[Rfam]
RNA sequence: AUUUUUGGGUGAUCGCGGUCUGACUUGUGCAGGCUGAGGAAAGUCCAUGCUCGCACAAGCUGCGAUGCUUGUAGUGUUCGUGCUUAGCGAAACAAUAAGCUAAGGUACUCUUUGGAGUAACGGCGGGAAAAAGAGCUAAGGCUUCGGCUAUGCUUUAGUAUCCCUGAAAGUGCCACAGUGACGAAGCAUUUUGGGAAACCAAAAUGGUGGAACGCGGUAAACCCCUCGAGCGAGCAACCCAAACUUAUGGUAGGGGCGCUCUUCCCAAGGAAUUGAACGAAUGGAAGAGGCAGAUUCUUCUGCAGAUAGAUGAUUGCCCAGUGGUUUUUUGCCUGAAAAAAACCAUGGACAGAACAUGGCUUACAGAA
Numbered sequence: 001a002u003u004u005u006u007g008g009g010u011g012a013u014c015g016c017g018g019u020c021u022g023a024c025u026u027g028u029g030c031a032g033g034c035u036g037a038g039g040a041a042a043g044u045c046c047a048u049g050c051u052c053g054c055a056c057a058a059g060c061u062g063c064g065a066u067g068c069u070u071g072u073a074g075u076g077u078u079c080g081u082g083c084u085u086a087g088c089g090a091a092a093c094a095a096u097a098a099g100c101u102a103a104g105g106u107a108c109u110c111u112u113u114g115g116a117g118u119a120a121c122g123g124c125g126g127g128a129a130a131a132a133g134a135g136c137u138a139a140g141g142c143u144u145c146g147g148c149u150a151u152g153c154u155u156u157a158g159u160a161u162c163c164c165u166g167a168a169a170g171u172g173c174c175a176c177a178g179u180g181a182c183g184a185a186g187c188a189u190u191u192u193g194g195g196a197a198a199c200c201a202a203a204a205u206g207g208u209g210g211a212a213c214g215c216g217g218u219a220a221a222c223c224c225c226u227c228g229a230g231c232g233a234g235c236a237a238c239c240c241a242a243a244c245u246u247a248u249g250g251u252a253g254g255g256g257c258g259c260u261c262u263u264c265c266c267a268a269g270g271a272a273u274u275g276a277a278c279g280a281a282u283g284g285a286a287g288a289g290g291c292a293g294a295u296u297c298u299u300c301u302g303c304a305g306a307u308a309g310a311u312g313a314u315u316g317c318c319c320a321g322u323g324g325u326u327u328u329u330u331g332c333c334u335g336a337a338a339a340a341a342a343c344c345a346u347g348g349a350c351a352g353a354a355c356a357u358g359g360c361u362u363a364c365a366g367a368a
Stems, first nucleotide, its partner, number of pairs: 004368003007364001008318007016036006041362003045359005050234005055072006078229003082225001083104006105121001106119005122224002125164004133155004140149003170222002172218003187206008238255003259289007290303005321346010
RNA: Bacterial RNase P class B